[Rfam]
RNA sequence: CUAGCUUGCGAAUGGCACUAGAAGAAUUCACGGGGAUAUUUUUUAACUGCCCGUGGUCUUUGAGUGCCAUCCCCAAAGCCCU
Numbered sequence: 001c002u003a004g005c006u007u008g009c010g011a012a013u014g015g016c017a018c019u020a021g022a023a024g025a026a027u028u029c030a031c032g033g034g035g036a037u038a039u040u041u042u043u044u045a046a047c048u049g050c051c052c053g054u055g056g057u058c059u060u061u062g063a064g065u066g067c068c069a070u071c072c073c074c075a076a077a078g079c080c081c082u
Stems, first nucleotide, its partner, number of pairs: 004079004010073001012070006019063001021061001022059001024058002028056006
RNA: mir-263 microRNA precursor family